[Rfam]
RNA sequence: GCCGGUCCUCGGUAGUGGCUCCCGGGAGAUACCCCGAGGGCUUCGAUCGAUGACCGGU
Numbered sequence: 001g002c003c004g005g006u007c008c009u010c011g012g013u014a015g016u017g018g019c020u021c022c023c024g025g026g027a028g029a030u031a032c033c034c035c036g037a038g039g040g041c042u043u044c045g046a047u048c049g050a051u052g053a054c055c056g057g058u
Base pairs, nucleotide, nucleotide: 001058002057003056004055005054006053007052009050010049011048012047013046017042018041019040020039021038023036024035025034026033